[Rfam]
RNA sequence: AAUCGUUGGUGGCAUAACUUCCCAAAUUGGGCGGAAGCGACGCGCGCAUAGAUUUGAUAAUGCAUUAGUGCCGAACCCGCCAUUAUCAGCGGGUUUUUUUAU
Dot-bracket structure: ........(((...(..(.(((......))).)..)....)))..............................(((((((........))))))).......
About this RNA:
Tryptophan operon leader: a 102-nucleotide RNA from Providencia sneebia. It is annotated as a cis-regulatory leader. The literature on the family includes a 1982 paper in Annu Rev Genet by Kolter and Yanofsky, "Attenuation in amino acid biosynthetic operons". Its family is annotated with transcriptional attenuation by ribosome and tryptophan biosynthetic process in the Gene Ontology. Taxonomically the source falls in Providencia sneebia (Bacteria, Pseudomonadati, Morganellaceae, Providencia). A search with the family's covariance model found it, with a score of 47 bits.